[Rfam]
RNA sequence: ACAGUACAUACGCCGAAUCCUGUAUAGGUACGGAGGACCCAAGUUUUUGGGGUGAAGCGUUUUUUCGCAGGGUUGCAUUGCCUGACCCUAACCCGACAGCUAACUCCGGAGGCGAAGAAAGGCGGAACA
Numbered sequence: 001a002c003a004g005u006a007c008a009u010a011c012g013c014c015g016a017a018u019c020c021u022g023u024a025u026a027g028g029u030a031c032g033g034a035g036g037a038c039c040c041a042a043g044u045u046u047u048u049g050g051g052g053u054g055a056a057g058c059g060u061u062u063u064u065u066c067g068c069a070g071g072g073u074u075g076c077a078u079u080g081c082c083u084g085a086c087c088c089u090a091a092c093c094c095g096a097c098a099g100c101u102a103a104c105u106c107c108g109g110a111g112g113c114g115a116a117g118a119a120a121g122g123c124g125g126a127a128c129a
Stems, first nucleotide, its partner, number of pairs: 011114004019028002031108005040049002050094003058067002070088004
Dot-bracket structure: ..........((((....((......))..(((((....((......))(((.....((......))..((((...........))))...))).........)))))..))))...............
A member of the RNA family "c-di-AMP riboswitch aptamer (ydaO/yuaA leader)" from Pelosinus sp. UFO1, 129 nucleotides long. Lineage of the source: Bacteria > Bacillati > Bacillota > Sporomusaceae > Pelosinus. This family represents a conserved RNA structure found upstream of the ydaO and yuaA genes in Bacillus subtilis and related genes in other bacteria. Pairs were carried over by alignment from the consensus structure.